[Rfam]
Nucleotides: 052
Base pairs, nucleotide, nucleotide: 001036002035003034004033005032007030008029011025012024013023014022015019
Number, partner (000 for none) and nucleotide at each position: 001036c002035g003034u004033g005032u006000g007030g008029u009000g010000u011025c012024c013023g014022g015019c016000u017000u018000a019015g020000a021000u022014u023013c024012g025011g026000a027000u028000g029008g030007c031000g032005a033004c034003a035002c036001g037000g038000c039000c040000u041000a042000a043000a044000u045000u046000a047000u048000a049000a050000g051000g052000u
Notes:
Shown here is a 52-nucleotide sequence from Aliivibrio salmonicida, a member of the family "L31-Gammaproteobacteria ribosomal protein leader". The family's consensus secondary structure is taken from published work. Clan: Ribosomal Protein L31 Leader clan. The family's RNA type in Rfam is cis-regulatory leader. Rfam's curators put it in the seed alignment. A reference for the family is Eckert and Weinberg (2020), "Discovery of 20 novel ribosomal leader candidates in bacteria and archaea", BMC Microbiol.